[Rfam]
RNA sequence: GCCACAUACGUUAGAAUCGUUCGUAUAUCCCCGAGAAUUUGGCUUGGGGGUCUCUAGAGGAAGCCAUAACUUCCUAGCUACGACGGGUGCUUGCUUUCGC
Number, nucleotide and partner (000 for none) at each position: 001g000002c000003c000004a000005c000006a000007u000008a000009c000010g000011u000012u000013a000014g000015a000016a000017u000018c086019g000020u000021u083022c082023g081024u080025a079026u000027a000028u000029c049030c048031c047032c046033g045034a044035g043036a000037a000038u000039u000040u000041g000042g000043c035044u034045u033046g032047g031048g030049g029050g000051u000052c000053u000054c000055u000056a000057g000058a075059g074060g073061a072062a071063g070064c000065c000066a000067u000068a000069a000070c063071u062072u061073c060074c059075u058076a000077g000078c000079u025080a024081c023082g022083a021084c000085g000086g018087g000088u000089g000090c000091u000092u000093g000094c000095u000096u000097u000098c000099g000100c000